A member of the RNA family "Small nucleolar RNA SNORA79" from Bos taurus, 148 nucleotides long. The sequence is in the family's curated seed alignment. For this family Rfam cites "A computational screen for mammalian pseudouridylation guide H/ACA RNAs" (Schattner et al., RNA, 2006). The source organism's lineage runs through Eukaryota, Craniata, Dipnotetrapodomorpha, Theria and Bos. ACA65 (SNORA79) is a member of the H/ACA class of snoRNAs that guide the sites of modification of uridines to pseudouridines.
RNA sequence: UGAUGGCUGUUCCUCUUACCGUUUGGAGCUCCGAGUAGUGGGAUUUUAGUCCAUCGUGCAUCUAAGCUGACUUCUCUUCACUCUGGGCACCAUGGGGAUGAGUUGGCUGUCCGUUAGUGCCUUCUGAAUUUUGCGGAGUCAAACAAUU
Numbered sequence: 001u002g003a004u005g006g007c008u009g010u011u012c013c014u015c016u017u018a019c020c021g022u023u024u025g026g027a028g029c030u031c032c033g034a035g036u037a038g039u040g041g042g043a044u045u046u047u048a049g050u051c052c053a054u055c056g057u058g059c060a061u062c063u064a065a066g067c068u069g070a071c072u073u074c075u076c077u078u079c080a081c082u083c084u085g086g087g088c089a090c091c092a093u094g095g096g097g098a099u100g101a102g103u104u105g106g107c108u109g110u111c112c113g114u115u116a117g118u119g120c121c122u123u124c125u126g127a128a129u130u131u132u133g134c135g136g137a138g139u140c141a142a143a144c145a146a147u148u
Stems, first nucleotide, its partner, number of pairs: 001056006008049001014043005021036003069140006082127002085124002087120004096112005